[Rfam]
RNA sequence: GUCCUAUUGGCAGCUAAAGACUGGCAACCGAUAGCGAGAAUCGGGUAGGGC
Numbered sequence: 001g002u003c004c005u006a007u008u009g010g011c012a013g014c015u016a017a018a019g020a021c022u023g024g025c026a027a028c029c030g031a032u033a034g035c036g037a038g039a040a041u042c043g044g045g046u047a048g049g050g051c
Stems, first nucleotide, its partner, number of pairs: 001051007011023002019035001025038001028044005

Notes
The record is a 51-nucleotide RNA sequence, which matches "DUF2693-FD RNA" in Rfam. The base pairs follow the family's consensus structure, which is taken from published work.